[Rfam]
Shown here is a 223-nucleotide part of an RNA from Zymoseptoria ardabiliae, a member of the family "Eukaryotic large subunit ribosomal RNA". Lineage of the source: Eukaryota > Dikarya > dothideomyceta > Dothideomycetidae > Zymoseptoria ardabiliae. Its family is annotated with structural constituent of ribosome and ribosome in the Gene Ontology.

RNA sequence: GCUUAUAACUAGACUUUAGGGCGGUAUUCCGCUAGUCUUCUAACCGGUCUACUCUCCGUCCUAAGGCUAAUAUUAUCUAGGACCGCCGGAUAAGACCUUAGGAAUAUAGCUCCCCCUCGGGGGAGUAUUAUAGCCUAUAGUAAUACGGCGCGUCCCGGGUAAGGUCCGCGCUUUAGUAAGGAUAUUAGCGUAAUAGUUAUUAGUAGCCUAUCUUAAAACACGG
Numbered sequence: 001g002c003u004u005a006u007a008a009c010u011a012g013a014c015u016u017u018a019g020g021g022c023g024g025u026a027u028u029c030c031g032c033u034a035g036u037c038u039u040c041u042a043a044c045c046g047g048u049c050u051a052c053u054c055u056c057c058g059u060c061c062u063a064a065g066g067c068u069a070a071u072a073u074u075a076u077c078u079a080g081g082a083c084c085g086c087c088g089g090a091u092a093a094g095a096c097c098u099u100a101g102g103a104a105u106a107u108a109g110c111u112c113c114c115c116c117u118c119g120g121g122g123g124a125g126u127a128u129u130a131u132a133g134c135c136u137a138u139a140g141u142a143a144u145a146c147g148g149c150g151c152g153u154c155c156c157g158g159g160u161a162a163g164g165u166c167c168g169c170g171c172u173u174u175a176g177u178a179a180g181g182a183u184a185u186u187a188g189c190g191u192a193a194u195a196g197u198u199a200u201u202a203g204u205a206g207c208c209u210a211u212c213u214u215a216a217a218a219c220a221c222g223g
Base pairs, nucleotide, nucleotide: 001204002203003202005200006199007198008197009196010195011194015063018062019061020060021059022058023057024056067188068187069186070185071184072183073182208223209222211220
Dot-bracket structure: (((.(((((((...(..(((((((...............................))))))))...(((((((............................................................................................................))))))).....))))))).)))...((.(........).))